[Rfam]
RNA: Enterococcus sRNA 1C
RNA sequence: UAGUAGGAAGCAUUUAUUCACUUCUUUACAAAUCUAUCUUAAUCUUAGACAGUCGGCGGAAAACGGCUGUCUAUUUAUCUGGAAAAAUUAUGAACUCGUCAGCUAGUGGUCAGUUGACGAGUUUUAUGUU
Numbered sequence: 001u002a003g004u005a006g007g008a009a010g011c012a013u014u015u016a017u018u019c020a021c022u023u024c025u026u027u028a029c030a031a032a033u034c035u036a037u038c039u040u041a042a043u044c045u046u047a048g049a050c051a052g053u054c055g056g057c058g059g060a061a062a063a064c065g066g067c068u069g070u071c072u073a074u075u076u077a078u079c080u081g082g083a084a085a086a087a088u089u090a091u092g093a094a095c096u097c098g099u100c101a102g103c104u105a106g107u108g109g110u111c112a113g114u115u116g117a118c119g120a121g122u123u124u125u126a127u128g129u130u
Base pairs, nucleotide, nucleotide: 003029004028005027006026007024008023009022010021037083038082039081046073047072048071049070050069051068052067053066054065055064092124093123094122095121096120097119098118099117100116101115102114103113104112